[Rfam]
RNA sequence: UGGCGCCCAGCGUGAGGGCUGGAUACGGAGGAUCCAGUGAGGGAAGAAGGCGUCCCCAAGUCACGUUCCACAACAAUUUUCACUCUGGAGUCGCCGAGGGAACCUGCCUCGGCUACAACCAGAAGUAAGUAUCGACGUCUGAUUAUGGGACAAGAAUUAAGCAGGCAUGAAAUUUAUGUUCAGCAAUUGCAGGAUGCCUUAUGGACGCGAGGAGUAAAGGUUAAAAUAGAGGAUCUAUUGAGGUUCUUUGAAUUUAUUAAGGAAACCUGUCCUU
Numbered sequence: 001u002g003g004c005g006c007c008c009a010g011c012g013u014g015a016g017g018g019c020u021g022g023a024u025a026c027g028g029a030g031g032a033u034c035c036a037g038u039g040a041g042g043g044a045a046g047a048a049g050g051c052g053u054c055c056c057c058a059a060g061u062c063a064c065g066u067u068c069c070a071c072a073a074c075a076a077u078u079u080u081c082a083c084u085c086u087g088g089a090g091u092c093g094c095c096g097a098g099g100g101a102a103c104c105u106g107c108c109u110c111g112g113c114u115a116c117a118a119c120c121a122g123a124a125g126u127a128a129g130u131a132u133c134g135a136c137g138u139c140u141g142a143u144u145a146u147g148g149g150a151c152a153a154g155a156a157u158u159a160a161g162c163a164g165g166c167a168u169g170a171a172a173u174u175u176a177u178g179u180u181c182a183g184c185a186a187u188u189g190c191a192g193g194a195u196g197c198c199u200u201a202u203g204g205a206c207g208c209g210a211g212g213a214g215u216a217a218a219g220g221u222u223a224a225a226a227u228a229g230a231g232g233a234u235c236u237a238u239u240g241a242g243g244u245u246c247u248u249u250g251a252a253u254u255u256a257u258u259a260a261g262g263a264a265a266c267c268u269g270u271c272c273u274u
Base pairs, nucleotide, nucleotide: 006031007030012026013025014024035050038047082126083125084124085122086121091117095111096110097109098108099107132153134151138149139148140147141146158201159200160199161197162196163195208250209249210248211247212246213245214244215243218236219235220234221233222232259274260273261272262271263270
Rfam assigns this 274-nucleotide sequence from Nannospalax galili to the family "Mason-Pfizer monkey virus packaging signal". The family's consensus secondary structure was predicted with PFOLD. It is annotated as a cis-regulatory element. This family represents a group of sequences that are related to the Mason-Pfizer monkey virus (MPMV) packaging signal. The packaging signal is located in the 5' UTR and is required for specific RNA encapsidation. Taxonomically the source falls in Nannospalax (Eukaryota, Boreoeutheria, Myomorpha, Spalacinae).